[Rfam]
A member of the RNA family "Small nucleolar RNA SNORA29" from Orycteropus afer, 143 nucleotides long. About the family: ACA29 is a member of the H/ACA class of snoRNA that guide the sites of modification of uridines to pseudouridines. Its Rfam clan is "SNORA20 clan". On this family, see Huttenhofer et al., EMBO J 2001: "RNomics: an experimental approach that identifies 201 candidates for novel, small, non-messenger RNAs in mouse".

RNA sequence: CUUUCCAGUUUUGACUACCACUCCAGAUCUUAACAGUAGACUUUAGUGGCUAUGCUUGUGAGAUAGAUUAAAAUUGCCAUGAUCUGAAGAGGGAGUUUUAUUUUUGUGUCUGCCUCCUACAUGAAAUGGCUGUACAGAAAGAC
Numbered sequence: 001c002u003u004u005c006c007a008g009u010u011u012u013g014a015c016u017a018c019c020a021c022u023c024c025a026g027a028u029c030u031u032a033a034c035a036g037u038a039g040a041c042u043u044u045a046g047u048g049g050c051u052a053u054g055c056u057u058g059u060g061a062g063a064u065a066g067a068u069u070a071a072a073a074u075u076g077c078c079a080u081g082a083u084c085u086g087a088a089g090a091g092g093g094a095g096u097u098u099u100a101u102u103u104u105u106g107u108g109u110c111u112g113c114c115u116c117c118u119a120c121a122u123g124a125a126a127u128g129g130c131u132g133u134a135c136a137g138a139a140a141g142a143c
Base pairs, nucleotide, nucleotide: 004062006060007059018049019048020047021046076130077129078128079127094118095117